[Rfam]
RNA sequence: UUUGACACCCAUCAAAGGGUAGUUCCCCAUUCGGGAGCUACUUUGACCAUAUUCGGAAUUC
Number, nucleotide and partner (000 for none) at each position: 001u000002u000003u000004g000005a000006c000007a000008c000009c000010c000011a000012u000013c000014a000015a000016a000017g043018g042019g041020u040021a039022g038023u037024u036025c035026c034027c000028c000029a000030u000031u000032c000033g000034g026035g025036a024037g023038c022039u021040a020041c019042u018043u017044u000045g000046a000047c000048c000049a000050u000051a000052u000053u000054c000055g000056g000057a000058a000059u000060u000061c000

The family of this 61-nucleotide RNA sequence from Macleaya cordata is "Plastid-psbN 5UTR RNA".
A reference for the family is Richter et al. (2023), "Retrograde signaling in plants: A critical review focusing on the GUN pathway and beyond", Plant Commun.
Rfam's curators write: Plastid psbN is a non-coding RNA (ncRNA) recognised in plastids. It was reported as a conserved 11 stem-loop in the prime untranslated region (5UTR) of psbN genes. It has been reported that the motif is retained in a subset of mature transcripts in barley, which can suggests a possible role in transcript alternative 5 prime processing.
Pairs were carried over by alignment from the consensus structure, which was predicted with LocARNA.
By type it is a cis-regulatory element.
A search with the family's covariance model found it, with a score of 64 bits.
The organism belongs to Macleaya, within Eukaryota.